[Rfam]
RNA sequence: GUGCAUACCUCGGGGGGCCUUGCGCGUCGGGACUUUGAAAGCGACUGUUUUUGAAUUCCCGUAAAUGUUGGGCUGAGAGUGCGAAAGCUGACCCGUAGAACCUGAACCGGUUAACACCGGCGGAGGGAAGGUCUGGAUAGGUUUC
Numbered sequence: 001g002u003g004c005a006u007a008c009c010u011c012g013g014g015g016g017g018c019c020u021u022g023c024g025c026g027u028c029g030g031g032a033c034u035u036u037g038a039a040a041g042c043g044a045c046u047g048u049u050u051u052u053g054a055a056u057u058c059c060c061g062u063a064a065a066u067g068u069u070g071g072g073c074u075g076a077g078a079g080u081g082c083g084a085a086a087g088c089u090g091a092c093c094c095g096u097a098g099a100a101c102c103u104g105a106a107c108c109g110g111u112u113a114a115c116a117c118c119g120g121c122g123g124a125g126g127g128a129a130g131g132u133c134u135g136g137a138u139a140g141g142u143u144u145c
Stems, first nucleotide, its partner, number of pairs: 007132004011095004016089001017073004081088002101126003107120004
Background: This 145-nucleotide RNA from Sulfitobacter undariae belongs to the Rfam family "TPP riboswitch aptamer (THI element)". From the family's description: Vitamin B(1) in its active form thiamin pyrophosphate (TPP) is an essential coenzyme that is synthesised by coupling of pyrimidine and thiazole moieties in bacteria. The previously detected thiamin-regulatory element, thi box was extended, resulting in a new, highly conserved RNA secondary structure, the THI element, which is widely distributed in eubacteria and also occurs in some archaea. Analysis of operon structures identified a large number of new candidate thiamin-regulated genes, mostly transporters, in various prokaryotic organisms. The THI element is a riboswitch that directly binds to TPP to regulate gene expression through a variety of mechanisms in archaea, bacteria and eukaryotes. through a variety of mechanisms in archaea, bacteria and eukaryotes.